Shown here is a 122-nucleotide RNA from Cucumis melo, a member of the family "MIR390 microRNA precursor family". The base pairs follow the family's consensus structure, which was predicted with WAR. The organism belongs to Cucumis, within Eukaryota. It scores 105 bits against the family's covariance model.
[Rfam]
RNA sequence: UGGAAGAACCUGUAAAGCUCAGGAGGGAUAGCGCCAAUUAAUAUUACAAAAAUUUCAUUCAAAGCUUCACACUUUGCUUUUGUUGAUGGCGCUAUCUAUCCUGAGUUUCAUAGCUUCUUCUU
Numbered sequence: 001u002g003g004a005a006g007a008a009c010c011u012g013u014a015a016a017g018c019u020c021a022g023g024a025g026g027g028a029u030a031g032c033g034c035c036a037a038u039u040a041a042u043a044u045u046a047c048a049a050a051a052a053u054u055u056c057a058u059u060c061a062a063a064g065c066u067u068c069a070c071a072c073u074u075u076g077c078u079u080u081u082g083u084u085g086a087u088g089g090c091g092c093u094a095u096c097u098a099u100c101c102u103g104a105g106u107u108u109c110a111u112a113g114c115u116u117c118u119u120c121u122u
Stems, first nucleotide, its partner, number of pairs: 010113001016107009026097010